[Rfam]
RNA: Bacterial large subunit ribosomal RNA, nucleotides 1963 to 2549
RNA sequence: CCUGCACCUGGACAGAAAGACCCUAUGAAGCUUUACUGUAGCUUGGUAUUGGGUUCGGGCUUUGAUUGCGCAGGAUAGGUGGGAGACUUAGAACUAAGCCUUGUGGGGUUUAGUGAGUCACUGGUGAGAUACCACUCUAUCAAGGCUAGGAUUCUAACAUUGAGCCGUCAACCGGCCAGUGGACAGUAUCAGGUGGGCAGUUUGACUGGGGCGGUCGCCUCCUAAAAAGUAACGGAGGCGCGCAAAGGUUCCCUCCGGCUGGUUGGAAAUCAGCCUACGAGUGUAAAGGCAUAAGGGAGCUUGACUGCGAGAGUGACAGCUCGAGCAGGGUGGAAACACGGCCUUAGUGAUCCGACGGUACCGAGUGGAAGGGCCGUCGCUCAACGGAUAAAAGUUACUCUAGGGAUAACAGGCUGAUCUCCCCCAAGAGUUCACAUCGACGGGGAGGUUUGGCACCUCGAUGUCGGCUCGUCGCAACCUGGGGCGGUAGUACGUCCCAAGGGUUGGGCUGUUCGCCCAUUAAAGCGGCACGCGAGCUGGGUUCAGAACGUCGUGAGACAGUUCGGUCCAUAUCCGGUGCAGGCGCA
Numbered sequence: 001c002c003u004g005c006a007c008c009u010g011g012a013c014a015g016a017a018a019g020a021c022c023c024u025a026u027g028a029a030g031c032u033u034u035a036c037u038g039u040a041g042c043u044u045g046g047u048a049u050u051g052g053g054u055u056c057g058g059g060c061u062u063u064g065a066u067u068g069c070g071c072a073g074g075a076u077a078g079g080u081g082g083g084a085g086a087c088u089u090a091g092a093a094c095u096a097a098g099c100c101u102u103g104u105g106g107g108g109u110u111u112a113g114u115g116a117g118u119c120a121c122u123g124g125u126g127a128g129a130u131a132c133c134a135c136u137c138u139a140u141c142a143a144g145g146c147u148a149g150g151a152u153u154c155u156a157a158c159a160u161u162g163a164g165c166c167g168u169c170a171a172c173c174g175g176c177c178a179g180u181g182g183a184c185a186g187u188a189u190c191a192g193g194u195g196g197g198c199a200g201u202u203u204g205a206c207u208g209g210g211g212c213g214g215u216c217g218c219c220u221c222c223u224a225a226a227a228a229g230u231a232a233c234g235g236a237g238g239c240g241c242g243c244a245a246a247g248g249u250u251c252c253c254u255c256c257g258g259c260u261g262g263u264u265g266g267a268a269a270u271c272a273g274c275c276u277a278c279g280a281g282u283g284u285a286a287a288g289g290c291a292u293a294a295g296g297g298a299g300c301u302u303g304a305c306u307g308c309g310a311g312a313g314u315g316a317c318a319g320c321u322c323g324a325g326c327a328g329g330g331u332g333g334a335a336a337c338a339c340g341g342c343c344u345u346a347g348u349g350a351u352c353c354g355a356c357g358g359u360a361c362c363g364a365g366u367g368g369a370a371g372g373g374c375c376g377u378c379g380c381u382c383a384a385c386g387g388a389u390a391a392a393a394g395u396u397a398c399u400c401u402a403g404g405g406a407u408a409a410c411a412g413g414c415u416g417a418u419c420u421c422c423c424c425c426a427a428g429a430g431u432u433c434a435c436a437u438c439g440a441c442g443g444g445g446a447g448g449u450u451u452g453g454c455a456c457c458u459c460g461a462u463g464u465c466g467g468c469u470c471g472u473c474g475c476a477a478c479c480u481g482g483g484g485c486g487g488u489a490g491u492a493c494g495u496c497c498c499a500a501g502g503g504u505u506g507g508g509c510u511g512u513u514c515g516c517c518c519a520u521u522a523a524a525g526c527g528g529c530a531c532g533c534g535a536g537c538u539g540g541g542u543u544c545a546g547a548a549c550g551u552c553g554u555g556a557g558a559c560a561g562u563u564c565g566g567u568c569c570a571u572a573u574c575c576g577g578u579g580c581a582g583g584c585g586c587a
Stems, first nucleotide, its partner, number of pairs: 001583008010575003015569001022404004027400002029396005035201004042193007051154006058147009068137001078136005085119003094113008158181003164176004204216004217239006240385001242342002248300006254280002257275006281290002305328004311322003330339003353379007361372002413454003417451001418448007428438002465540001466538004470532001471529005478503002481498006505519005546564004550559003